[Rfam]
RNA sequence: AAAUCAGUGUGUGUAUCAGAAUUGUGCUUUAAUCAGAAAGAGUUCUCUGCAAAAUUGCGUUUGGCGAAAGUGGGCAGGUGAGUUUCUAUUGAUUUAUCAACAAUCGUUUUCUCCAGUGUU
Numbered sequence: 001a002a003a004u005c006a007g008u009g010u011g012u013g014u015a016u017c018a019g020a021a022u023u024g025u026g027c028u029u030u031a032a033u034c035a036g037a038a039a040g041a042g043u044u045c046u047c048u049g050c051a052a053a054a055u056u057g058c059g060u061u062u063g064g065c066g067a068a069a070g071u072g073g074g075c076a077g078g079u080g081a082g083u084u085u086c087u088a089u090u091g092a093u094u095u096a097u098c099a100a101c102a103a104u105c106g107u108u109u110u111c112u113c114c115a116g117u118g119u120u
Stems, first nucleotide, its partner, number of pairs: 001046001003044001011027005063114002066111008077101001079099002
This 120-nucleotide sequence from Papaver nudicaule belongs to the Rfam family "small nucleolar RNA snoR135".
The family's RNA type in Rfam is H/ACA-box small nucleolar RNA.
The base pairs follow the family's consensus structure, which was predicted with RNAalifold.
A reference for the family is Chen and Wu (2009), "Mining small RNA sequencing data: a new approach to identify small nucleolar RNAs in Arabidopsis", Nucleic Acids Res.
The organism belongs to Papaver, within Eukaryota.